[Rfam]
RNA sequence: GUUGCUUCUUAUGGUGAACCCCUUCUAUUAAAAUAGGGGAUGUUCAAGUUUCCGAAGCAUAAAUAAAUUUCUAAGCCAGUAUUAAACAGCAGUGUGCACUAAUUUUUUUGUUGCACUUUGUUACCUGUCUUCUGGUAAAUUU
Numbered sequence: 001g002u003u004g005c006u007u008c009u010u011a012u013g014g015u016g017a018a019c020c021c022c023u024u025c026u027a028u029u030a031a032a033a034u035a036g037g038g039g040a041u042g043u044u045c046a047a048g049u050u051u052c053c054g055a056a057g058c059a060u061a062a063a064u065a066a067a068u069u070u071c072u073a074a075g076c077c078a079g080u081a082u083u084a085a086a087c088a089g090c091a092g093u094g095u096g097c098a099c100u101a102a103u104u105u106u107u108u109u110g111u112u113g114c115a116c117u118u119u120g121u122u123a124c125c126u127g128u129c130u131u132c133u134g135g136u137a138a139a140u141u142u
Stems, first nucleotide, its partner, number of pairs: 003059006015046005020039004075136005081130001088122003092118001094116003

The record is a 142-nucleotide RNA from Cannabis sativa, which matches "small nucleolar RNA snoR137" in Rfam. The match comes from Rfam's covariance-model search (104 bits). The source organism's lineage runs through Eukaryota, Viridiplantae, Pentapetalae, rosids and Cannabis. A reference for the family is Chen and Wu (2009), "Mining small RNA sequencing data: a new approach to identify small nucleolar RNAs in Arabidopsis", Nucleic Acids Res. Rfam links the family to the GO terms RNA processing and nucleolus.